small nucleolar RNA snoR135: a 142-nucleotide RNA sequence from Lathyrus oleraceus. Rfam links the family to the GO terms RNA processing and nucleolus.

RNA sequence: GACGCAGUGAUAGUGUGUAUCGGUGUUAUGCUAUGAUCAAUGCAUUCUUCCGAAAGUAUUCCCUGCAACAUGAAUCUGAGAAAAUGGGCAGUUGUCUUUCAUUCUAAGGUUGAAAUUCACAACAAUCAUUUUCCCUACAUGU
Numbered sequence: 001g002a003c004g005c006a007g008u009g010a011u012a013g014u015g016u017g018u019a020u021c022g023g024u025g026u027u028a029u030g031c032u033a034u035g036a037u038c039a040a041u042g043c044a045u046u047c048u049u050c051c052g053a054a055a056g057u058a059u060u061c062c063c064u065g066c067a068a069c070a071u072g073a074a075u076c077u078g079a080g081a082a083a084a085u086g087g088g089c090a091g092u093u094g095u096c097u098u099u100c101a102u103u104c105u106a107a108g109g110u111u112g113a114a115a116u117u118c119a120c121a122a123c124a125a126u127c128a129u130u131u132u133c134c135c136u137a138c139a140u141g142u
Stems, first nucleotide, its partner, number of pairs: 004066004009061002015045006078135001080133008091123004

By type it is an H/ACA-box small nucleolar RNA. On this family, see Chen and Wu, Nucleic Acids Res 2009: "Mining small RNA sequencing data: a new approach to identify small nucleolar RNAs in Arabidopsis". The organism belongs to Lathyrus, within Eukaryota. A search with the family's covariance model found it, with a score of 112 bits.